This 167-nucleotide sequence from Verrucomicrobium sp. GAS474 belongs to the Rfam family "c-di-AMP riboswitch aptamer (ydaO/yuaA leader)". The match comes from Rfam's covariance-model search (46 bits). The pairing is the family consensus, mapped onto this sequence.
[Rfam]
RNA sequence: ACGACGCAGCAGCCUAAGCUUCGCCUAUCCAAGGCGCGGCGCGGAGGAACCACUUCCCUUGCUUUCAUCGGCACGGGACGGGGCGCAGGAGCCGGGUAACCGGAACUCCGGGUCACUUCCAUGACCCAGCCCGUCAGCUAACUUCGUCGGCACAUGGAAGGGCGAUG
Numbered sequence: 001a002c003g004a005c006g007c008a009g010c011a012g013c014c015u016a017a018g019c020u021u022c023g024c025c026u027a028u029c030c031a032a033g034g035c036g037c038g039g040c041g042c043g044g045a046g047g048a049a050c051c052a053c054u055u056c057c058c059u060u061g062c063u064u065u066c067a068u069c070g071g072c073a074c075g076g077g078a079c080g081g082g083g084c085g086c087a088g089g090a091g092c093c094g095g096g097u098a099a100c101c102g103g104a105a106c107u108c109c110g111g112g113u114c115a116c117u118u119c120c121a122u123g124a125c126c127c128a129g130c131c132c133g134u135c136a137g138c139u140a141a142c143u144u145c146g147u148c149g150g151c152a153c154a155u156g157g158a159a160g161g162g163c164g165a166u167g
Stems, first nucleotide, its partner, number of pairs: 012151003018040003041147006051080001081132003089108003111126004
Dot-bracket structure: ...........(((...(((.................)))((((((....(............................)(((.....(((..............)))..((((........))))...))).........)))))).)))................